[Rfam]
RNA sequence: UAGCGCUACAGUACUUUUAGAAUUCGUCUCGCAGGUUUUCCAGUCCUCACCAGAAAAUCCCC
Numbered sequence: 001u002a003g004c005g006c007u008a009c010a011g012u013a014c015u016u017u018u019a020g021a022a023u024u025c026g027u028c029u030c031g032c033a034g035g036u037u038u039u040c041c042a043g044u045c046c047u048c049a050c051c052a053g054a055a056a057a058u059c060c061c062c
Base pairs, nucleotide, nucleotide: 034059035058036057037056038055039054040053043050044049
A member of the RNA family "U7 small nuclear RNA" from Propithecus coquereli, 62 nucleotides long. NCBI's taxonomy places the organism under Eukaryota, Metazoa, Mammalia, Primates, Propithecus. A search with the family's covariance model found it, with a score of 35 bits.